Shown here is a 128-nucleotide RNA sequence from Liparis tanakae, a member of the family "U4atac minor spliceosomal RNA". From the family's description: U4atac is an essential component of the minor U12-type spliceosome complex which is required for removal of the rarer class of eukaryotic introns (AT-AC, U12-type). It is annotated as a spliceosomal small nuclear RNA. Clan: U4 clan. The organism belongs to Liparis, within Eukaryota.

[Rfam]
RNA sequence: ACCUUCCUUGUCAUGGGGUGAGUGAGCUGCUCGAGGAACGUCUCGUGAGGGCAGCCCUGCUGACACCAGAAACGACACUUAAGCACCACCUGGACUUCGGUCCGGGCCAUGGUGCAAUUUUUGGAACC
Number, nucleotide and partner (000 for none) at each position: 001a000002c000003c000004u000005u000006c018007c017008u016009u015010g000011u000012c000013a000014u000015g009016g008017g007018g006019u000020g000021a000022g060023u059024g058025a000026g055027c054028u053029g052030c051031u050032c049033g000034a000035g000036g000037a000038a046039c045040g000041u000042c000043u000044c000045g039046u038047g000048a000049g032050g031051g030052c029053a028054g027055c026056c000057c000058u024059g023060c022061u000062g000063a000064c000065a000066c000067c000068a000069g000070a000071a000072a000073c000074g000075a000076c000077a000078c000079u000080u000081a000082a000083g115084c114085a113086c112087c111088a110089c106090c105091u000092g103093g102094a101095c100096u000097u000098c000099g000100g095101u094102c093103c092104g000105g090106g089107c000108c000109a000110u088111g087112g086113u085114g084115c083116a000117a000118u000119u000120u000121u000122u000123g000124g000125a000126a000127c000128c000